[Rfam]
Rfam assigns this 178-nucleotide sequence from Paenibacillus sp. GSMTC-2017 to the family "PyrR binding site". For this family Rfam cites "Molecular recognition of pyr mRNA by the Bacillus subtilis attenuation regulatory protein PyrR" (Bonner et al., Nucleic Acids Res, 2001). The organism belongs to Paenibacillus, within Bacteria. From the family's description: This family represents the PyrR binding site and terminator structure. This RNA structure is found upstream of a variety of genes involved in pyrimidine biosynthesis and transport. The alignment also includes a portion of the antiterminator structure.
RNA sequence: AGUACCUUUAACUCAGUCCUGUGAGACUGGCAAGGUAACGUGAAUAUAGGUCUAAUUUUAUUUAGAAUGAGAAAUCCGAACAUACGUCUGAGGUCUGUUGACCGUAAGCGUUAGGAUGCCUCUUCUUUAAACUGACUAAUCACAACCUCCUUGCGAACUUCGCAAGGAGGUUUUUUGU
Numbered sequence: 001a002g003u004a005c006c007u008u009u010a011a012c013u014c015a016g017u018c019c020u021g022u023g024a025g026a027c028u029g030g031c032a033a034g035g036u037a038a039c040g041u042g043a044a045u046a047u048a049g050g051u052c053u054a055a056u057u058u059u060a061u062u063u064a065g066a067a068u069g070a071g072a073a074a075u076c077c078g079a080a081c082a083u084a085c086g087u088c089u090g091a092g093g094u095c096u097g098u099u100g101a102c103c104g105u106a107a108g109c110g111u112u113a114g115g116a117u118g119c120c121u122c123u124u125c126u127u128u129a130a131a132c133u134g135a136c137u138a139a140u141c142a143c144a145a146c147c148u149c150c151u152u153g154c155g156a157a158c159u160u161c162g163c164a165a166g167g168a169g170g171u172u173u174u175u176u177g178u
Base pairs, nucleotide, nucleotide: 003037004036005035006034007033008032013030014029015028016027017026018025048075051072052071053070055068056067057066058065059064144172145171146170147169148168149167150166151165152164153163154162155161156160

It is annotated as a cis-regulatory element.